[Rfam]
RNA: Manganese Mn2+ riboswitch aptamer (yybP-ykoY)
Organism: Caulobacteraceae bacterium
RNA sequence: AGCCUCGUCACUGGGGAGUAGCCGCCCGCAUCGAAGCGGGAGCGCCGUCAACAGACUUGGGGUUCGCCCCAUGGCGGCGUUAGCCUCGUAAAGAGGCCU
Dot-bracket structure: .........................(((........))).((((((((((.......(((((....)))))))))))))))..................